[Rfam]
This 100-nucleotide RNA sequence from Acidaminobacter hydrogenoformans belongs to the Rfam family "SAM riboswitch aptamer (S box leader)".

RNA sequence: CUCUUAUCCAGAGAGACGGAGGGAACUGGCCCUAUGAAGUCCGGCAACCUGCCCUAUGAGGCGUGGUGCCAAAUCCAGCGGUUUAACCGAAAGAUGAGGA
Numbered sequence: 001c002u003c004u005u006a007u008c009c010a011g012a013g014a015g016a017c018g019g020a021g022g023g024a025a026c027u028g029g030c031c032c033u034a035u036g037a038a039g040u041c042c043g044g045c046a047a048c049c050u051g052c053c054c055u056a057u058g059a060g061g062c063g064u065g066g067u068g069c070c071a072a073a074u075c076c077a078g079c080g081g082u083u084u085a086a087c088c089g090a091a092a093g094a095u096g097a098g099g100a
Stems, first nucleotide, its partner, number of pairs: 002099007013042001015041003021032003026078004043070004048066002050063004074092001079089004